Annotation
This 134-nucleotide RNA sequence from Curtobacterium sp. ISL-83 belongs to the Rfam family "FMN riboswitch aptamer (RFN element)". NCBI's taxonomy places the organism under Bacteria, Actinomycetota, Micrococcales, Microbacteriaceae, Curtobacterium. Rfam 15.1 lists 6,230 matches to the family in 5,120 species.
[Rfam]
RNA sequence: AAGCGCUCCGGGGUCGGUGAAAUUCCGAACCGGUGGUGACAGUCCACGAACUGAUGACGGGUGCGAACCCGCCAGAGGUUGACCCGGUGGGAUUCCGGGACCGACGGUGAGAGUCCGGAUGGGAGGAAGCGCUG
Numbered sequence: 001a002a003g004c005g006c007u008c009c010g011g012g013g014u015c016g017g018u019g020a021a022a023u024u025c026c027g028a029a030c031c032g033g034u035g036g037u038g039a040c041a042g043u044c045c046a047c048g049a050a051c052u053g054a055u056g057a058c059g060g061g062u063g064c065g066a067a068c069c070c071g072c073c074a075g076a077g078g079u080u081g082a083c084c085c086g087g088u089g090g091g092a093u094u095c096c097g098g099g100a101c102c103g104a105c106g107g108u109g110a111g112a113g114u115c116c117g118g119a120u121g122g123g124a125g126g127a128a129g130c131g132c133u134g
Stems, first nucleotide, its partner, number of pairs: 003132005008125001015027003029114002031103002033047004042101002050079003083099005105117003
For this family Rfam cites "Regulation of riboflavin biosynthesis and transport genes in bacteria by transcriptional and translational attenuation" (Vitreschak et al., Nucleic Acids Res, 2002).